Shown here is a 107-nucleotide RNA from Mangrovihabitans endophyticus, a member of the family "ZMP/ZTP riboswitch aptamer (pfl RNA motif)". The base pairs follow the family's consensus structure, which is taken from published work. The source organism's lineage runs through Bacteria, Bacillati, Actinomycetes, Micromonosporaceae and Mangrovihabitans. The match comes from Rfam's covariance-model search (42 bits). Gene Ontology terms of the family: one-carbon metabolic process and regulation of purine nucleotide biosynthetic process.
RNA sequence: GCGGCGGGCCGUGACUGGCGUGUUCGGAUGGGCCAACCAUCGGGGAGCGGUCCCACGGCUGGGCGUUUCGUCCGGCCAGUGACCUGCCGUGCGCCUGGGCCUCUUCC
Numbered sequence: 001g002c003g004g005c006g007g008g009c010c011g012u013g014a015c016u017g018g019c020g021u022g023u024u025c026g027g028a029u030g031g032g033c034c035a036a037c038c039a040u041c042g043g044g045g046a047g048c049g050g051u052c053c054c055a056c057g058g059c060u061g062g063g064c065g066u067u068u069c070g071u072c073c074g075g076c077c078a079g080u081g082a083c084c085u086g087c088c089g090u091g092c093g094c095c096u097g098g099g100c101c102u103c104u105u106c107c
Base pairs, nucleotide, nucleotide: 003056006053007052008051009050010049011048012047015044016043017095018094019093020092021091028040029039030038031037086100087099088098